[Rfam]
RNA sequence: CCGCAAUUCCUGCUGAGUCCCCGCCGCACCUGGGCGGGGGACGGGGGACCCAAAUGUUGGGGCGAAUCGCGGCCGCUGUCGCGUAGCGCAAGCUCUUCUCGCGCGAGCCCGUCAGCUAACCCCGGAAGCGACGAGAGCGGAGCG
Numbered sequence: 001c002c003g004c005a006a007u008u009c010c011u012g013c014u015g016a017g018u019c020c021c022c023g024c025c026g027c028a029c030c031u032g033g034g035c036g037g038g039g040g041a042c043g044g045g046g047g048a049c050c051c052a053a054a055u056g057u058u059g060g061g062g063c064g065a066a067u068c069g070c071g072g073c074c075g076c077u078g079u080c081g082c083g084u085a086g087c088g089c090a091a092g093c094u095c096u097u098c099u100c101g102c103g104c105g106a107g108c109c110c111g112u113c114a115g116c117u118a119a120c121c122c123c124g125g126a127a128g129c130g131a132c133g134a135g136a137g138c139g140g141a142g143c144g
Base pairs, nucleotide, nucleotide: 011130012129013128014127018040019039020038021037022036023035024034025033042124043123044122045121046120051059052058060110061109062108068083069082070081071080086104087103088102089101
Dot-bracket structure: ..........((((...((((((((.......)))))))).(((((....((.....))(((.....((((........))))..((((...........))))...))).........)))))..))))..............